RNA sequence: GUGAUUUUUUUCAUAGUAUUAGAUUUAAGGUUAACAAAGGUUGGAGCAAAGCGUUGCUCCUUUUCCUUUUUU
Numbered sequence: 001g002u003g004a005u006u007u008u009u010u011u012c013a014u015a016g017u018a019u020u021a022g023a024u025u026u027a028a029g030g031u032u033a034a035c036a037a038a039g040g041u042u043g044g045a046g047c048a049a050a051g052c053g054u055u056g057c058u059c060c061u062u063u064u065c066c067u068u069u070u071u072u
Base pairs, nucleotide, nucleotide: 043060044059045058046057047056048055049054
The family of this 72-nucleotide sequence from Phocaeicola vulgatus is "Bacteroidetes FopS (family of paralogous sRNAs)". Its family is annotated with sRNA-mediated gene silencing in the Gene Ontology. From the family's description: The RNA-binding protein RbpB and BTncRNA_FopS sRNA are involved in the post-transcription regulation of polysaccharide utilisation loci (PUL). FopS sRNAs function as post-transcriptional repressors by binding to the vicinity of the start codon of the first mRNA of target PUL polycistrons, typically corresponding to the cognate SusC homolog, impeding translation of the respective glycan transporter.